[Rfam]
RNA sequence: CAAUUAAUUAAAUAUUUACCAAAGACAGUAGCUGUGGUAUCCACUUAAUUUGCUACCGAGGAAAAAUAAACCUGGAACUUAUUUUCUCUCUUUAUAUGUCUUUAUAUAUUAAGAGGGAUUUUAUUUAUUAAAA
Numbered sequence: 001c002a003a004u005u006a007a008u009u010a011a012a013u014a015u016u017u018a019c020c021a022a023a024g025a026c027a028g029u030a031g032c033u034g035u036g037g038u039a040u041c042c043a044c045u046u047a048a049u050u051u052g053c054u055a056c057c058g059a060g061g062a063a064a065a066a067u068a069a070a071c072c073u074g075g076a077a078c079u080u081a082u083u084u085u086c087u088c089u090c091u092u093u094a095u096a097u098g099u100c101u102u103u104a105u106a107u108a109u110u111a112a113g114a115g116g117g118a119u120u121u122u123a124u125u126u127a128u129u130a131a132a133a
Stems, first nucleotide, its partner, number of pairs: 028056005034044003085118008094109006
RNA: Ribosomal protein L10 leader